[Rfam]
The family of this 179-nucleotide RNA sequence from Pseudomonas aeruginosa is "6S / SsrS RNA".
Taxonomically the source falls in Pseudomonas aeruginosa (Bacteria, Gammaproteobacteria, Pseudomonadaceae, Pseudomonas).
RNA sequence: CGCUCCCUGGUGUGUUGGCCAGUCGGUGAUGUCCCUGAGCCGAUAACUGCAACAACGGAGGUUGCCAGUUGGACCGGUGUGCAUGUCCGCACGACGGAAAGCCUUAAGGUCUACUGCAACCGCCACCUUGAACUUUCGGGUUCAAGGGCUAACCCGACAGCGGCACGACCGGGGAGCUA
Numbered sequence: 001c002g003c004u005c006c007c008u009g010g011u012g013u014g015u016u017g018g019c020c021a022g023u024c025g026g027u028g029a030u031g032u033c034c035c036u037g038a039g040c041c042g043a044u045a046a047c048u049g050c051a052a053c054a055a056c057g058g059a060g061g062u063u064g065c066c067a068g069u070u071g072g073a074c075c076g077g078u079g080u081g082c083a084u085g086u087c088c089g090c091a092c093g094a095c096g097g098a099a100a101g102c103c104u105u106a107a108g109g110u111c112u113a114c115u116g117c118a119a120c121c122g123c124c125a126c127c128u129u130g131a132a133c134u135u136u137c138g139g140g141u142u143c144a145a146g147g148g149c150u151a152a153c154c155c156g157a158c159a160g161c162g163g164c165a166c167g168a169c170c171g172g173g174g175a176g177c178u179a
Stems, first nucleotide, its partner, number of pairs: 002177010012166004018161002031149004036144006057124002061120005070113006081102002086098004